[Rfam]
RNA sequence: CCCAGGGGACGACCCCCAGGUGAUGGCCCCCAGGGGACGACCCC
Numbered sequence: 001c002c003c004a005g006g007g008g009a010c011g012a013c014c015c016c017c018a019g020g021u022g023a024u025g026g027c028c029c030c031c032a033g034g035g036g037a038c039g040a041c042c043c044c
Stems, first nucleotide, its partner, number of pairs: 001020002005016004033044004